About this RNA:
Rfam assigns this 84-nucleotide RNA sequence from Bombyx mori to the family "mir-2807 microRNA precursor family". Rfam 15.1 lists 5,120 matches to the family in 8 species. NCBI's taxonomy places the organism under Eukaryota, Opisthokonta, Glossata, Bombycoidea, Bombyx.

RNA sequence: UUAACUCAAAUUCGUACGGAGUUGGAACGUUUGCCUACGUUUGCCGCUAGGGGUGCUAUUCGAACUGCAUACAUAUAAGAGUUA
Numbered sequence: 001u002u003a004a005c006u007c008a009a010a011u012u013c014g015u016a017c018g019g020a021g022u023u024g025g026a027a028c029g030u031u032u033g034c035c036u037a038c039g040u041u042u043g044c045c046g047c048u049a050g051g052g053g054u055g056c057u058a059u060u061c062g063a064a065c066u067g068c069a070u071a072c073a074u075a076u077a078a079g080a081g082u083u084a
Stems, first nucleotide, its partner, number of pairs: 010076002014072003018068001020066004025061003029057001034052003039047002